[Rfam]
RNA: Small nucleolar RNA SNORD111
RNA sequence: UAGCCUGAAGUGAUGUUAUGAAUUCACGUCUCCUCUCUGAGAUUUAUCAUGGAGACAACUAGAUGCAUUUCUGAUCAGGCUU
Numbered sequence: 001u002a003g004c005c006u007g008a009a010g011u012g013a014u015g016u017u018a019u020g021a022a023u024u025c026a027c028g029u030c031u032c033c034u035c036u037c038u039g040a041g042a043u044u045u046a047u048c049a050u051g052g053a054g055a056c057a058a059c060u061a062g063a064u065g066c067a068u069u070u071c072u073g074a075u076c077a078g079g080c081u082u
Stems, first nucleotide, its partner, number of pairs: 002081004